Shown here is a 122-nucleotide sequence from Pseudoxanthomonas suwonensis, a member of the family "Glycine riboswitch aptamer".
NCBI's taxonomy places the organism under Bacteria, Pseudomonadati, Lysobacteraceae, Pseudoxanthomonas, Pseudoxanthomonas suwonensis.
A search with the family's covariance model found it, with a score of 60 bits.
Its family is annotated with glycine biosynthetic process in the Gene Ontology.
RNA sequence: UGCAAACACUCUGGAGAGACCGGCCGCGCGAGAGCGCCGGCGCCGGCGCCGAAGGGGCACGAAGCACGCGACCUCGUCCGCGCGUCUUCCAAACUCUCAGGCAAAAGGACAGAGGGGCAUCC
Numbered sequence: 001u002g003c004a005a006a007c008a009c010u011c012u013g014g015a016g017a018g019a020c021c022g023g024c025c026g027c028g029c030g031a032g033a034g035c036g037c038c039g040g041c042g043c044c045g046g047c048g049c050c051g052a053a054g055g056g057g058c059a060c061g062a063a064g065c066a067c068g069c070g071a072c073c074u075c076g077u078c079c080g081c082g083c084g085u086c087u088u089c090c091a092a093a094c095u096c097u098c099a100g101g102c103a104a105a106a107g108g109a110c111a112g113a114g115g116g117g118c119a120u121c122c
Base pairs, nucleotide, nucleotide: 007116009114010113011112012111013110020046021045022044023043048102049101050100051098052097055096056095057094061089062088063087064086